[Rfam]
This 68-nucleotide RNA sequence from Mycobacterium avium belongs to the Rfam family "ASdes TB sRNA".
The base pairs follow the family's consensus structure, which is taken from published work.
A reference for the family is Arnvig and Young (2009), "Identification of small RNAs in Mycobacterium tuberculosis", Mol Microbiol.

RNA sequence: UUGGCGGUCGGGUCGACCUCGCGGGUCACCACCAGGUAAUUCCGCAGCGCAAUGGCGUGCAGGUGCUC
Numbered sequence: 001u002u003g004g005c006g007g008u009c010g011g012g013u014c015g016a017c018c019u020c021g022c023g024g025g026u027c028a029c030c031a032c033c034a035g036g037u038a039a040u041u042c043c044g045c046a047g048c049g050c051a052a053u054g055g056c057g058u059g060c061a062g063g064u065g066c067u068c
Stems, first nucleotide, its partner, number of pairs: 005062001008059001011030003015027004035056001037054002040052002043049002